Shown here is a 107-nucleotide sequence from Jeotgalibacillus campisalis, a member of the family "SAM riboswitch aptamer (S box leader)".
About the family: The SAM riboswitch is found upstream of a number of genes which code for proteins involved in methionine or cysteine biosynthesis in Gram-positive bacteria.

[Rfam]
RNA sequence: AGCUUAUCCAGAGCGGCUGAGGGACUGGCCCGUCGAUGCCGCGGCAACCUGCUUUUAGAGCAAGGUGCCAAUUCCAGCAAAAUGACAACCAUUUUGGACGAUAAGGU
Dot-bracket structure: (.((((((....(((((...(((.[[[[)))......)))))((((.((((((.....)))).))))))....]]]]((((((.......))))))...)))))).)